TPP riboswitch aptamer (THI element): a 109-nucleotide RNA from Acetobacterium bakii. About the family: Vitamin B(1) in its active form thiamin pyrophosphate (TPP) is an essential coenzyme that is synthesised by coupling of pyrimidine and thiazole moieties in bacteria. The previously detected thiamin-regulatory element, thi box was extended, resulting in a new, highly conserved RNA secondary structure, the THI element, which is widely distributed in eubacteria and also occurs in some archaea. Analysis of operon structures identified a large number of new candidate thiamin-regulated genes, mostly transporters, in various prokaryotic organisms. NCBI's taxonomy places the organism under Bacteria, Bacillota, Clostridia, Eubacteriales, Acetobacterium. The family's consensus secondary structure is taken from published work.

RNA sequence: GUAAAUAUUCAGGGGAGCUUGUGAGCAGGCUGAGAGGAAGUGAUUAAGCUUCGACCCUUAUAACCUGAUUUGGAUAAUACCAGCGUAGGGACGAAACAUUUAAAUUGUG
Numbered sequence: 001g002u003a004a005a006u007a008u009u010c011a012g013g014g015g016a017g018c019u020u021g022u023g024a025g026c027a028g029g030c031u032g033a034g035a036g037g038a039a040g041u042g043a044u045u046a047a048g049c050u051u052c053g054a055c056c057c058u059u060a061u062a063a064c065c066u067g068a069u070u071u072g073g074a075u076a077a078u079a080c081c082a083g084c085g086u087a088g089g090g091a092c093g094a095a096a097c098a099u100u101u102a103a104a105u106u107g108u109g
Base pairs, nucleotide, nucleotide: 008095009094010093011058012057013056014055017030018029019028020027021026037052038051039050040049041048064089065088066087067086070083071082072081073080